[Rfam]
Nucleotides: 096
Base pairs, nucleotide, nucleotide: 004090005089006088007087008086009085010084011083012082013081014080015077018075019074020073021072022071024067025066026065027064028063034059035058036057042051043050044049
Number, partner (000 for none) and nucleotide at each position: 001000g002000c003000a004090g005089a006088c007087c008086c009085c010084u011083c012082g013081u014080g015077c016000g017000g018075c019074g020073u021072c022071a023000c024067c025066u026065u027064a028063u029000g030000a031000a032000c033000c034059u035058c036057c037000c038000c039000a040000g041000g042051g043050c044049c045000g046000g047000a048000a049044g050043g051042c052000a053000g054000c055000a056000a057036g058035g059034a060000u061000a062000a063028g064027u065026a066025a067024g068000c069000u070000c071022u072021g073020g074019c075018g076000g077015g078000u079000g080014c081013g082012c083011g084010g085009g086008g087007g088006g089005u090004c091000c092000u093000u094000u095000u096000u
Overview: A member of the RNA family "Bacterial small signal recognition particle RNA" from Nocardiopsis gilva, 96 nucleotides long. Taxonomically the source falls in Nocardiopsis gilva (Bacteria, Actinomycetota, Actinomycetes, Nocardiopsidaceae). Rfam describes the family as follows. The signal recognition particle (SRP) is a universally conserved ribonucleoprotein involved in the co-translational targeting of proteins to membranes. The base pairs follow the family's consensus structure, which is taken from published work. By type it is a non-coding RNA gene.